[Rfam]
This 118-nucleotide sequence from Glycine max belongs to the Rfam family "MIR1520 microRNA precursor family". A search with the family's covariance model found it, with a score of 100 bits. The source organism's lineage runs through Eukaryota, Streptophytina, eudicotyledons, Fabales and Glycine subgen. Soja. Its family is annotated with miRNA-mediated post-transcriptional gene silencing and RISC complex in the Gene Ontology. Rfam 15.1 lists 1,934 matches to the family in 15 species.
RNA sequence: UUCUCAUUGGAUGACGAUUGUCACAUGUCAUUUUGAUUGGUCAAUGAAAACAAAAAUAUAUUUCAUCUUUUAUGGAAUUGACAUCCAAUGAGAACAUGACACGUGAUAGUCGUUAUCC
Numbered sequence: 001u002u003c004u005c006a007u008u009g010g011a012u013g014a015c016g017a018u019u020g021u022c023a024c025a026u027g028u029c030a031u032u033u034u035g036a037u038u039g040g041u042c043a044a045u046g047a048a049a050a051c052a053a054a055a056a057u058a059u060a061u062u063u064c065a066u067c068u069u070u071u072a073u074g075g076a077a078u079u080g081a082c083a084u085c086c087a088a089u090g091a092g093a094a095c096a097u098g099a100c101a102c103g104u105g106a107u108a109g110u111c112g113u114u115a116u117c118c
Base pairs, nucleotide, nucleotide: 020107021106022105023104026101029098030097031096033094034093036089037088038087039086040085